[Rfam]
RNA sequence: UAAUUCCAGUGUCGAAAGUCCUUCCUUCACGACGUGCCUGCACGGGAGGGAAGGAAGGACUUUAUGACACGCCUCUCUAUGAGCAUGAAGCGGGGAUACCCCGCGAAAUGCGAAUAGAAGGCUGCAUGGUGUGAGCUGCUCCGCAGCGAACCCAUGCGGAAUUA
Numbered sequence: 001u002a003a004u005u006c007c008a009g010u011g012u013c014g015a016a017a018g019u020c021c022u023u024c025c026u027u028c029a030c031g032a033c034g035u036g037c038c039u040g041c042a043c044g045g046g047a048g049g050g051a052a053g054g055a056a057g058g059a060c061u062u063u064a065u066g067a068c069a070c071g072c073c074u075c076u077c078u079a080u081g082a083g084c085a086u087g088a089a090g091c092g093g094g095g096a097u098a099c100c101c102c103g104c105g106a107a108a109u110g111c112g113a114a115u116a117g118a119a120g121g122c123u124g125c126a127u128g129g130u131g132u133g134a135g136c137u138g139c140u141c142c143g144c145a146g147c148g149a150a151c152c153c154a155u156g157c158g159g160a161a162u163u164a
Stems, first nucleotide, its partner, number of pairs: 001164007010069004016062013030048001033044004073121002076118005083111004090104005124157006135147004